Background: The family of this 89-nucleotide sequence from Scyliorhinus torazame is "Vault RNA". The family's RNA type in Rfam is non-coding RNA gene. A search with the family's covariance model found it, with a score of 40 bits. The family's consensus secondary structure is taken from published work.
RNA sequence: GCGUCAGCUUUAGCUCACUAGCUACUUCACAGCGUGAACUUCAUUGUAAGUUCAAACCUGUCUCACCCUGAGCGCUGUCUGACGUUUUU
Numbered sequence: 001g002c003g004u005c006a007g008c009u010u011u012a013g014c015u016c017a018c019u020a021g022c023u024a025c026u027u028c029a030c031a032g033c034g035u036g037a038a039c040u041u042c043a044u045u046g047u048a049a050g051u052u053c054a055a056a057c058c059u060g061u062c063u064c065a066c067c068c069u070g071a072g073c074g075c076u077g078u079c080u081g082a083c084g085u086u087u088u089u
Stems, first nucleotide, its partner, number of pairs: 002084006013073004020069002026055002029052001